The family of this 37-nucleotide sequence from Nitrosomonas communis is "CRISPR RNA direct repeat element". NCBI's taxonomy places the organism under Bacteria, Pseudomonadati, Betaproteobacteria, Nitrosomonadaceae, Nitrosomonas. Pairs were carried over by alignment from the consensus structure, which was predicted with WAR.

RNA sequence: GUAGCGCCCAGCCAACGAGCUGGGCGAGGAUUGAAAC
Numbered sequence: 001g002u003a004g005c006g007c008c009c010a011g012c013c014a015a016c017g018a019g020c021u022g023g024g025c026g027a028g029g030a031u032u033g034a035a036a037c
Stems, first nucleotide, its partner, number of pairs: 005026008